[Rfam]
RNA sequence: UGAGAAGGGCAGGUAAUCGCGGACCACUACAGGCGGUCCGAGGAAAGUCCGAACUCCAUAGAGCAGGAUGCUGGCUAACGGCCAGUAGGGGUAACUCUCAGGAAAGUGCCACAGAAACGUACCGCCAGUAUGUGGCUUGCUGCAUACCGGUAAGGGUGAAAUGGUGAGGUAAGAGCUCACCGGCAGUCAGGUGACUGGCUGGCCGGGUAAACCCCAUCUGGAGCAAGACCAAGCAGAGAGAUCAGAUCUUCGGAUCUGGCAGGUUGCUCGCCUGUUAACUUUCGGGUUGGUCGCUGGAGACGGCAGGUAACUGUCGCCCUAGAUAGAUGAUUACCGCCGCUGUGCGUGUAAGCGUGGAGCGGGUCACAGAAUUCGGCUUAUCGUCCUUCUCUGCCU
Numbered sequence: 001u002g003a004g005a006a007g008g009g010c011a012g013g014u015a016a017u018c019g020c021g022g023a024c025c026a027c028u029a030c031a032g033g034c035g036g037u038c039c040g041a042g043g044a045a046a047g048u049c050c051g052a053a054c055u056c057c058a059u060a061g062a063g064c065a066g067g068a069u070g071c072u073g074g075c076u077a078a079c080g081g082c083c084a085g086u087a088g089g090g091g092u093a094a095c096u097c098u099c100a101g102g103a104a105a106g107u108g109c110c111a112c113a114g115a116a117a118c119g120u121a122c123c124g125c126c127a128g129u130a131u132g133u134g135g136c137u138u139g140c141u142g143c144a145u146a147c148c149g150g151u152a153a154g155g156g157u158g159a160a161a162u163g164g165u166g167a168g169g170u171a172a173g174a175g176c177u178c179a180c181c182g183g184c185a186g187u188c189a190g191g192u193g194a195c196u197g198g199c200u201g202g203c204c205g206g207g208u209a210a211a212c213c214c215c216a217u218c219u220g221g222a223g224c225a226a227g228a229c230c231a232a233g234c235a236g237a238g239a240g241a242u243c244a245g246a247u248c249u250u251c252g253g254a255u256c257u258g259g260c261a262g263g264u265u266g267c268u269c270g271c272c273u274g275u276u277a278a279c280u281u282u283c284g285g286g287u288u289g290g291u292c293g294c295u296g297g298a299g300a301c302g303g304c305a306g307g308u309a310a311c312u313g314u315c316g317c318c319c320u321a322g323a324u325a326g327a328u329g330a331u332u333a334c335c336g337c338c339g340c341u342g343u344g345c346g347u348g349u350a351a352g353c354g355u356g357g358a359g360c361g362g363g364u365c366a367c368a369g370a371a372u373u374c375g376g377c378u379u380a381u382c383g384u385c386c387u388u389c390u391c392u393g394c395c396u
Stems, first nucleotide, its partner, number of pairs: 002391009011381001012335007020040006027033002045379003049376005054223004061269004066219005071085005086100001087098004101214002106212002108208003122155002124151003128147008163181006183203001184201007227292004236283005260274005299318001301316006